[Rfam]
RNA sequence: UGGCGGGGGAGCACCGCAACGGGAGGAGCGUGCGGUUCAAUUGGAUUCAACGCCGAAAAACUCACCAGGAGCGACGGAUAUAUGAAGGUCAAGCCGAUGACUUUACCUGAUUUUCCGAGAGGUGGUGCAUGGCCGUCGUCAGUUCGUACCGUAAGGCGUUCUCUUAAGUGAGAUAACGAACGAGACCCUCACCAUUAAUUGCUAAUCCUUUCUCCGGAGGGGAUGCACAUUAAUGGGACCGCUGGCGCUAAGUCAGAGGAAGGAGAGGUCAACGGUAGGUCCGUAUGCCCCGAAUCUCCUGGGCAACACGCGCGCUACAAAGGACGGGACAAUGGGCUUCAACACCGAAAGGUGAAGACAAUCCUGAAACCCGUCCAUAGUUCGGAUUGGGGGCUGUAACUCGCCCCCAUGAAGCUGGAUUCCGUAGUAAUCGCUUGUCAACAUCAAGCGGUGAAUAUGCCCCUGCUCCUUGCACACACCGCCCGUCAAACCACCCGAGUUGGGUUUCAGUGAGGAUGUUUCUAAUUGGGGCUUUCGAACUGAGAUUCAGCAAGGAGGGUUAAGUCGUAACAAGGUAUCUGUAGGGGAACCUGCAGAUGG
Numbered sequence: 001u002g003g004c005g006g007g008g009g010a011g012c013a014c015c016g017c018a019a020c021g022g023g024a025g026g027a028g029c030g031u032g033c034g035g036u037u038c039a040a041u042u043g044g045a046u047u048c049a050a051c052g053c054c055g056a057a058a059a060a061c062u063c064a065c066c067a068g069g070a071g072c073g074a075c076g077g078a079u080a081u082a083u084g085a086a087g088g089u090c091a092a093g094c095c096g097a098u099g100a101c102u103u104u105a106c107c108u109g110a111u112u113u114u115c116c117g118a119g120a121g122g123u124g125g126u127g128c129a130u131g132g133c134c135g136u137c138g139u140c141a142g143u144u145c146g147u148a149c150c151g152u153a154a155g156g157c158g159u160u161c162u163c164u165u166a167a168g169u170g171a172g173a174u175a176a177c178g179a180a181c182g183a184g185a186c187c188c189u190c191a192c193c194a195u196u197a198a199u200u201g202c203u204a205a206u207c208c209u210u211u212c213u214c215c216g217g218a219g220g221g222g223a224u225g226c227a228c229a230u231u232a233a234u235g236g237g238a239c240c241g242c243u244g245g246c247g248c249u250a251a252g253u254c255a256g257a258g259g260a261a262g263g264a265g266a267g268g269u270c271a272a273c274g275g276u277a278g279g280u281c282c283g284u285a286u287g288c289c290c291c292g293a294a295u296c297u298c299c300u301g302g303g304c305a306a307c308a309c310g311c312g313c314g315c316u317a318c319a320a321a322g323g324a325c326g327g328g329a330c331a332a333u334g335g336g337c338u339u340c341a342a343c344a345c346c347g348a349a350a351g352g353u354g355a356a357g358a359c360a361a362u363c364c365u366g367a368a369a370c371c372c373g374u375c376c377a378u379a380g381u382u383c384g385g386a387u388u389g390g391g392g393g394c395u396g397u398a399a400c401u402c403g404c405c406c407c408c409a410u411g412a413a414g415c416u417g418g419a420u421u422c423c424g425u426a427g428u429a430a431u432c433g434c435u436u437g438u439c440a441a442c443a444u445c446a447a448g449c450g451g452u453g454a455a456u457a458u459g460c461c462c463c464u465g466c467u468c469c470u471u472g473c474a475c476a477c478a479c480c481g482c483c484c485g486u487c488a489a490a491c492c493a494c495c496c497g498a499g500u501u502g503g504g505u506u507u508c509a510g511u512g513a514g515g516a517u518g519u520u521u522c523u524a525a526u527u528g529g530g531g532c533u534u535u536c537g538a539a540c541u542g543a544g545a546u547u548c549a550g551c552a553a554g555g556a557g558g559g560u561u562a563a564g565u566c567g568u569a570a571c572a573a574g575g576u577a578u579c580u581g582u583a584g585g586g587g588a589a590c591c592u593g594c595a596g597a598u599g600g
Stems, first nucleotide, its partner, number of pairs: 001476002003473003007470007016460002020424005025318001027316008035307002041056004065302007075117004080111001087107003091103003121291002124289004130285002132280003135276004142181006149156002160173004187268004192236007202225001206223007239259002242256005322376007334365003339358002343354004383414001388409007430452008479574001481571001484567002487564001489561004495555002499551013514536003518532005576599010
RNA: Archaeal small subunit ribosomal RNA, nucleotides 859 to 1458
Organism: Candidatus Methanomassiliicoccus intestinalis